[Rfam]
RNA sequence: UACAAAUUAAAAGCGCCUGGACUAAUCCGCGGACGGUCAUGGAUUAGUUGACGAGGAGGAGGUUUAUCGAAUUUUCGGCGGAUACCUCCCGGUUGAUAGCAAAACCGAAAUUUCUUCUUUAAAACAUCAAGGCAACUUGAUGCACAAAGAGAAGAGAAUGCUAAAUA
Numbered sequence: 001u002a003c004a005a006a007u008u009a010a011a012a013g014c015g016c017c018u019g020g021a022c023u024a025a026u027c028c029g030c031g032g033a034c035g036g037u038c039a040u041g042g043a044u045u046a047g048u049u050g051a052c053g054a055g056g057a058g059g060a061g062g063u064u065u066a067u068c069g070a071a072u073u074u075u076c077g078g079c080g081g082a083u084a085c086c087u088c089c090c091g092g093u094u095g096a097u098a099g100c101a102a103a104a105c106c107g108a109a110a111u112u113u114c115u116u117c118u119u120u121a122a123a124a125c126a127u128c129a130a131g132g133c134a135a136c137u138u139g140a141u142g143c144a145c146a147a148a149g150a151g152a153a154g155a156g157a158a159u160g161c162u163a164a165a166u167a
Stems, first nucleotide, its partner, number of pairs: 020049009058089005067078004090107005111157007125142007
The family of this 167-nucleotide sequence from Bacillus mesophilum is "glmS glucosamine-6-phosphate activated ribozyme aptamer". The base pairs follow the family's consensus structure, which is taken from published work. On this family, see Winkler et al., Nature 2004: "Control of gene expression by a natural metabolite-responsive ribozyme". Rfam classes the family as a riboswitch. Taxonomically the source falls in Bacillus (Bacteria, Bacillati, Bacillota, Bacillaceae).